[Rfam]
RNA sequence: ACUUGUUUUGUUGGUUGUCAUCUAACCAUCAUCGUUCCAUCUGCCAUCCGGUGCAUGCAUGGAUGGACGCCUGAGUGAGUGCGUGGCGACUACGCCGACGCACAGGCACAGACGGUGAUGAUGGUUAGAUGACCAUCAGCAAACAUGUU
Numbered sequence: 001a002c003u004u005g006u007u008u009u010g011u012u013g014g015u016u017g018u019c020a021u022c023u024a025a026c027c028a029u030c031a032u033c034g035u036u037c038c039a040u041c042u043g044c045c046a047u048c049c050g051g052u053g054c055a056u057g058c059a060u061g062g063a064u065g066g067a068c069g070c071c072u073g074a075g076u077g078a079g080u081g082c083g084u085g086g087c088g089a090c091u092a093c094g095c096c097g098a099c100g101c102a103c104a105g106g107c108a109c110a111g112a113c114g115g116u117g118a119u120g121a122u123g124g125u126u127a128g129a130u131g132a133c134c135a136u137c138a139g140c141a142a143a144c145a146u147g148u149u
Stems, first nucleotide, its partner, number of pairs: 005144004010140006017133020
The family of this 149-nucleotide sequence from Hordeum vulgare is "MIR827 microRNA precursor family". Its family is annotated with RISC complex and miRNA-mediated post-transcriptional gene silencing in the Gene Ontology. Clan: MIR827 microRNA precursor clan. NCBI's taxonomy places the organism under Eukaryota, Viridiplantae, Tracheophyta, Euphyllophyta, Hordeum vulgare.